[Rfam]
RNA sequence: UGGGGUGUAGCCAAGCGGUAAGGCAGCGGAUUUUGAUUCCGCCAUUCGGAGGUUCGAUCCCUCCCUCCCCAG
Numbered sequence: 001u002g003g004g005g006u007g008u009a010g011c012c013a014a015g016c017g018g019u020a021a022g023g024c025a026g027c028g029g030a031u032u033u034u035g036a037u038u039c040c041g042c043c044a045u046u047c048g049g050a051g052g053u054u055c056g057a058u059c060c061c062u063c064c065c066u067c068c069c070c071a072g
Base pairs, nucleotide, nucleotide: 001071002070003069004068005067007065010024011023012022026042027041028040029039030038048064049063050062051061052060